[Rfam]
RNA sequence: AUUUACAUAAUGAUGACUAAAUAGUUAUCCCUGUCUGAAAUUAACAUUUGUUGAAGAUAUGGUUUCUGAAGUGGUU
Numbered sequence: 001a002u003u004u005a006c007a008u009a010a011u012g013a014u015g016a017c018u019a020a021a022u023a024g025u026u027a028u029c030c031c032u033g034u035c036u037g038a039a040a041u042u043a044a045c046a047u048u049u050g051u052u053g054a055a056g057a058u059a060u061g062g063u064u065u066c067u068g069a070a071g072u073g074g075u076u
Base pairs, nucleotide, nucleotide: 001076003074004073005072006071
Rfam assigns this 76-nucleotide RNA sequence from Agrilus planipennis to the family "Small nucleolar RNA R38". It is annotated as a C/D-box small nucleolar RNA. Rfam describes the family as follows. snoR38 is a C/D box small nucleolar RNA conserved across yeast, human, Arabidopsis and rice. It is encoded in the intron of elongation factor-1 gamma in both pombe and cerevisiae. snoR38 guides the methylation of 2'-O-ribose sites in 28S rRNA.